Glycine riboswitch aptamer: a 93-nucleotide RNA from Bordetella bronchiseptica. The source organism's lineage runs through Bacteria, Betaproteobacteria, Burkholderiales, Alcaligenaceae and Bordetella.

RNA sequence: ACGCAUGUCGCGGGAGAGAGCGGCCGAUUGCGGCUGCCGCCGAAGGCGCAAUUCGCCCGGAAUCGCUCAGGUAACCCAUACCGCGACUGCAUC
Dot-bracket structure: ......(((((((......((((..........)))).(((((..(((...((.....))...))))).)))........)))))))......